[Rfam]
RNA: drum RNA
RNA sequence: CAACUAUGAAGCAGGCAAUGGGACCGAUUUCCGUGUGUCUGUGGAGUUAUGUAUGUUGGUUCGGGUGAGUACCGCAGAUCGGUGUAGGCGUAAGCUGAAAGAAAACACCCUUG
Numbered sequence: 001c002a003a004c005u006a007u008g009a010a011g012c013a014g015g016c017a018a019u020g021g022g023a024c025c026g027a028u029u030u031c032c033g034u035g036u037g038u039c040u041g042u043g044g045a046g047u048u049a050u051g052u053a054u055g056u057u058g059g060u061u062c063g064g065g066u067g068a069g070u071a072c073c074g075c076a077g078a079u080c081g082g083u084g085u086a087g088g089c090g091u092a093a094g095c096u097g098a099a100a101g102a103a104a105a106c107a108c109c110c111u112u113g
Stems, first nucleotide, its partner, number of pairs: 002048003011042007021032002024082004063110003087096003